[Rfam]
Annotation
A member of the RNA family "Ribosomal protein L10 leader" from Herbinix hemicellulosilytica, 137 nucleotides long. Pairs were carried over by alignment from the consensus structure, which was predicted with CMfinder. Lineage of the source: Bacteria > Bacillota > Lachnospirales > Lachnospiraceae > Herbinix. A search with the family's covariance model found it, with a score of 82 bits. This family is a putative r-protein leader autoregulatory structure found in B. subtilis and other low-GC Gram-positive bacteria. It is located in the 5' untranslated regions of mRNAs encoding ribosomal proteins L10 and L12 (rplJ-rplL). A Rho-independent transcription terminator structure that is probably involved in regulation is included at the 3' end. By type it is a cis-regulatory leader.
RNA sequence: UUAGAUAAAUAUUAACUGCCGAAGACAGUAGGUGCCGUAAGGCGUAAGGUAAUACCGCCUACCGAGGGAAAGUUGGUUAUUCGUGAUUGAAAUUAACCUCUUUUUGCUUUGGCAGAAAGAGGUUUUUAUUAUGAAUA
Numbered sequence: 001u002u003a004g005a006u007a008a009a010u011a012u013u014a015a016c017u018g019c020c021g022a023a024g025a026c027a028g029u030a031g032g033u034g035c036c037g038u039a040a041g042g043c044g045u046a047a048g049g050u051a052a053u054a055c056c057g058c059c060u061a062c063c064g065a066g067g068g069a070a071a072g073u074u075g076g077u078u079a080u081u082c083g084u085g086a087u088u089g090a091a092a093u094u095a096a097c098c099u100c101u102u103u104u105u106g107c108u109u110u111g112g113c114a115g116a117a118a119g120a121g122g123u124u125u126u127u128a129u130u131a132u133g134a135a136u137a
Stems, first nucleotide, its partner, number of pairs: 028062006034043003097122010